A member of the RNA family "tRNA" from Mycoplasma capricolum, 74 nucleotides long. Lineage of the source: Bacteria > Mycoplasmatota > Mycoplasmatales > Mycoplasmataceae > Mycoplasma. It is one of the family's seed sequences. The family's RNA type in Rfam is transfer RNA.
RNA sequence: GGCGGGGUAGCUCAGUUGGUUAGAGCGUUCGGUUCAUACCCGAAAGGUCGAGAGUUCAAAUCUCUCCCCCGCUA
Numbered sequence: 001g002g003c004g005g006g007g008u009a010g011c012u013c014a015g016u017u018g019g020u021u022a023g024a025g026c027g028u029u030c031g032g033u034u035c036a037u038a039c040c041c042g043a044a045a046g047g048u049c050g051a052g053a054g055u056u057c058a059a060a061u062c063u064c065u066c067c068c069c070c071g072c073u074a
Stems, first nucleotide, its partner, number of pairs: 001073007010026004028044005050066005